This 92-nucleotide sequence from Caenorhabditis angaria belongs to the Rfam family "lin-4 microRNA precursor family". It scores 52 bits against the family's covariance model.

RNA sequence: UUUCCUGUUCCCUGAGACCUCAAGUGUGAUCCGUGUGUGCUUGUUUUUUGCGGGUAGGCAUCACGUUUGAGCUCUCUGGGCACCAGGAAUGA
Numbered sequence: 001u002u003u004c005c006u007g008u009u010c011c012c013u014g015a016g017a018c019c020u021c022a023a024g025u026g027u028g029a030u031c032c033g034u035g036u037g038u039g040c041u042u043g044u045u046u047u048u049u050g051c052g053g054g055u056a057g058g059c060a061u062c063a064c065g066u067u068u069g070a071g072c073u074c075u076c077u078g079g080g081c082a083c084c085a086g087g088a089a090u091g092a
Stems, first nucleotide, its partner, number of pairs: 010080003014076004019071004024066006